[Rfam]
RNA sequence: AUGAUCUAUUGACAACGAGAGAGAGCACGCGAGUCGGCAUUCAUGCAAGAGGAUAUAUAAAUGACUGUCUACAUGCGUGCUUUCUCUCGUUGUCAUAGGAAU
Numbered sequence: 001a002u003g004a005u006c007u008a009u010u011g012a013c014a015a016c017g018a019g020a021g022a023g024a025g026c027a028c029g030c031g032a033g034u035c036g037g038c039a040u041u042c043a044u045g046c047a048a049g050a051g052g053a054u055a056u057a058u059a060a061a062u063g064a065c066u067g068u069c070u071a072c073a074u075g076c077g078u079g080c081u082u083u084c085u086c087u088c089g090u091u092g093u094c095a096u097a098g099g100a101a102u
Base pairs, nucleotide, nucleotide: 010095011094012093013092014091016089017088020085021084023082025080026079027078028077029076030075031074033072034071
Rfam assigns this 102-nucleotide sequence from Aquilegia coerulea to the family "MIR535 microRNA precursor family". A reference for the family is Zeng et al. (2010), "Conservation and divergence of microRNAs and their functions in Euphorbiaceous plants", Nucleic Acids Res. It scores 81 bits against the family's covariance model. Gene Ontology terms of the family: RISC complex and miRNA-mediated post-transcriptional gene silencing.